[Rfam]
RNA sequence: GCUGUAUUGUCAAAGUGCUUACAGUGCAGGUAGUACAAUGGAAUAUCUACUGCAGUGGAGGCACUUCUACCAAUACCUC
Numbered sequence: 001g002c003u004g005u006a007u008u009g010u011c012a013a014a015g016u017g018c019u020u021a022c023a024g025u026g027c028a029g030g031u032a033g034u035a036c037a038a039u040g041g042a043a044u045a046u047c048u049a050c051u052g053c054a055g056u057g058g059a060g061g062c063a064c065u066u067c068u069a070c071c072a073a074u075a076c077c078u079c
Stems, first nucleotide, its partner, number of pairs: 004076004009071001013066008022057002025054003029051005
mir-17 microRNA precursor family: a 79-nucleotide RNA from Coregonus sp. 'balchen'. The family has 234 seed sequences and 4,687 matches in Rfam 15.1. A search with the family's covariance model found it, with a score of 67 bits. The organism belongs to Coregonus, within Eukaryota. This family represents the microRNA (miRNA) precursor mir-17, family, which includes mir-20, mir-91, and mir-103. miRNAs are transcribed as ~70nt precursors (modelled here) and subsequently processed by the Dicer enzyme to give a ~22nt product. Pairs were carried over by alignment from the consensus structure, which was predicted with RNAalifold.